[Rfam]
RNA: mraW RNA
RNA sequence: GACAGCGCGUGCGGCGAGGCUUCAACCCGCAGGUCCGUUUGCCCUGGCACACCUUCCCCGGUGCCAGGUCAGAUGAGGCGGGUCUCGGGUUGAAACCUGGCGGUACGCGCUGACUGUC
Number, nucleotide and partner (000 for none) at each position: 001g000002a000003c000004a000005g000006c000007g000008c000009g000010u105011g104012c103013g000014g101015c100016g000017a000018g097019g096020c000021u094022u093023c092024a091025a090026c089027c088028c087029g086030c000031a085032g084033g083034u082035c081036c000037g000038u073039u072040u071041g070042c000043c068044c067045u066046g065047g064048c063049a062050c061051a000052c000053c000054u000055u000056c000057c000058c000059c000060g000061g050062u049063g048064c047065c046066a045067g044068g043069u000070c041071a040072g039073a038074u000075g000076a000077g000078g000079c000080g000081g035082g034083u033084c032085u031086c029087g028088g027089g026090u025091u024092g023093a022094a021095a000096c019097c018098u000099g000100g015101c014102g000103g012104u011105a010106c000107g000108c000109g000110c000111u000112g000113a000114c000115u000116g000117u000118c000